[Rfam]
Shown here is a 156-nucleotide RNA from Pseudorhodobacter sp. PARRP1, a member of the family "ALIL pseudoknot". Rfam classes the family as a cis-regulatory element. The family's consensus secondary structure is taken from published work. Taxonomically the source falls in Pseudorhodobacter (Bacteria, Pseudomonadati, Rhodobacterales, Paracoccaceae). A reference for the family is Mazauric et al. (2008), "Apical loop-internal loop RNA pseudoknots: a new type of stimulator of -1 translational frameshifting in bacteria", J Biol Chem. The match comes from Rfam's covariance-model search (77 bits).
RNA sequence: AGCGUAUUUUGCUCAGGCCCCUCUCGCGGUUUGAAGUCAAACCGCUGCCGGGCAGCGGGAGCUCGACCGCCCGUUUCGCAAAUGAUUGCUUUCAUUGAGGAAAGCCGAGAGGCACACGGGGUCGAGCCGAUCUGCAGGGCGCUGCAGUUUGCCCCU
Dot-bracket structure: ...............(((..................................................)))..............................................((((......((..((((((....))))))..)))))).